[Rfam]
RNA sequence: GCAUCCAUAGCUCAGUUGGUAGAGCAACAGACUCUUAAUCUGUGGGUCCACGGUUCGAGCCCGUGUGGGUGUA
Numbered sequence: 001g002c003a004u005c006c007a008u009a010g011c012u013c014a015g016u017u018g019g020u021a022g023a024g025c026a027a028c029a030g031a032c033u034c035u036u037a038a039u040c041u042g043u044g045g046g047u048c049c050a051c052g053g054u055u056c057g058a059g060c061c062c063g064u065g066u067g068g069g070u071g072u073a
Stems, first nucleotide, its partner, number of pairs: 001072007010025004027043005049065005
RNA: tRNA
Organism: Acholeplasma laidlawii